[Rfam]
This 93-nucleotide RNA from Paenalicyclobacillus macrosporangiidus belongs to the Rfam family "Selenocysteine transfer RNA". The literature on the family includes a 1997 paper in Nucleic Acids Res by Lowe and Eddy, "tRNAscan-SE: a program for improved detection of transfer RNA genes in genomic sequence".
RNA sequence: GGGAACGGAUGGGGUACUGGUGUCCCUCCUGGCCUUCAAAGCCAAGUGGGCGGCGUGGUGCGUAGCCGGUCGGUUCGAUUCCGACACGUUCCC
Number, nucleotide and partner (000 for none) at each position: 001g093002g092003g091004a090005a089006c088007g087008g000009a000010u000011g000012g027013g026014g025015u000016a023017c022018u000019g000020g000021u000022g017023u016024c000025c014026c013027u012028c046029c000030u044031g043032g042033c041034c000035u000036u000037c000038a000039a000040a000041g033042c032043c031044a030045a000046g028047u000048g067049g066050g000051c000052g063053g000054c000055g000056u000057g000058g000059u000060g000061c000062g000063u052064a000065g000066c049067c048068g000069g000070u084071c083072g082073g081074u000075u000076c000077g000078a000079u000080u000081c073082c072083g071084a070085c000086a000087c007088g006089u005090u004091c003092c002093c001